Shown here is a 171-nucleotide sequence from Succinivibrio dextrinosolvens, a member of the family "Group II catalytic intron D1-D4-3". The match comes from Rfam's covariance-model search (130 bits).
RNA sequence: GUUACGGUGACGUGAUAGCUGAAAGCAGUGGAUAGCAAAUCUCUGGUCCGACGAACAGAAAUCAUCUAUAGGCGAACUAGGUGGAUAAGAGUGCAAAUUAACUCAAAGUCCAAUAAUUAGACGGAACCUAGUGUGUAAAGAUGGCGGAUAGAUGGAGUGAAAGAUAAUGUU
Numbered sequence: 001g002u003u004a005c006g007g008u009g010a011c012g013u014g015a016u017a018g019c020u021g022a023a024a025g026c027a028g029u030g031g032a033u034a035g036c037a038a039a040u041c042u043c044u045g046g047u048c049c050g051a052c053g054a055a056c057a058g059a060a061a062u063c064a065u066c067u068a069u070a071g072g073c074g075a076a077c078u079a080g081g082u083g084g085a086u087a088a089g090a091g092u093g094c095a096a097a098u099u100a101a102c103u104c105a106a107a108g109u110c111c112a113a114u115a116a117u118u119a120g121a122c123g124g125a126a127c128c129u130a131g132u133g134u135g136u137a138a139a140g141a142u143g144g145c146g147g148a149u150a151g152a153u154g155g156a157g158u159g160a161a162a163g164a165u166a167a168u169g170u171u
Stems, first nucleotide, its partner, number of pairs: 001016006028171001031168001036163001041157005046149005062144006072136003076132007083111004089104004